[Rfam]
RNA sequence: GACACUGGGCGCGAGGAGAGGGGUGCUAUCUGUGACUGACAUGGCCAAUGGGAUUGUCUCACACAGAAAUCGCACCCGUCCCCUUGGCCCAACUC
Numbered sequence: 001g002a003c004a005c006u007g008g009g010c011g012c013g014a015g016g017a018g019a020g021g022g023g024u025g026c027u028a029u030c031u032g033u034g035a036c037u038g039a040c041a042u043g044g045c046c047a048a049u050g051g052g053a054u055u056g057u058c059u060c061a062c063a064c065a066g067a068a069a070u071c072g073c074a075c076c077c078g079u080c081c082c083c084u085u086g087g088c089c090c091a092a093c094u095c
Stems, first nucleotide, its partner, number of pairs: 012086005018080002021077006029067006037061003
RNA: mir-342 microRNA precursor family
Organism: Molossus molossus